[Rfam]
Shown here is a 93-nucleotide sequence from Microvirga aerophila, a member of the family "Repression of heat shock gene expression (ROSE) element". NCBI's taxonomy places the organism under Bacteria, Pseudomonadati, Pseudomonadota, Hyphomicrobiales, Microvirga. The family's RNA type in Rfam is RNA thermoregulator. This family represents a 5' UTR cis-regulatory element found in heat shock mRNAs and is known as the ROSE (repression of heat shock gene expression) element. The family's consensus secondary structure is taken from published work. Rfam links the family to the GO terms regulation of translation and response to temperature stimulus.
RNA sequence: GCCAAGGCCCAUGCGGCUUGGCACACGGGUGCCGGUCUGGUGUCCGGCACCUUUCAUUUCCAUGUUGCUCCGAUGAGGAUAUGGCUGUGAGGA
Numbered sequence: 001g002c003c004a005a006g007g008c009c010c011a012u013g014c015g016g017c018u019u020g021g022c023a024c025a026c027g028g029g030u031g032c033c034g035g036u037c038u039g040g041u042g043u044c045c046g047g048c049a050c051c052u053u054u055c056a057u058u059u060c061c062a063u064g065u066u067g068c069u070c071c072g073a074u075g076a077g078g079a080u081a082u083g084g085c086u087g088u089g090a091g092g093a
Base pairs, nucleotide, nucleotide: 001022002021003020004019005018006017008016009015029050030049031048032047033046034045035044037042051091052090053089055087056086060084061083062082063081064080065079066078068077069076070075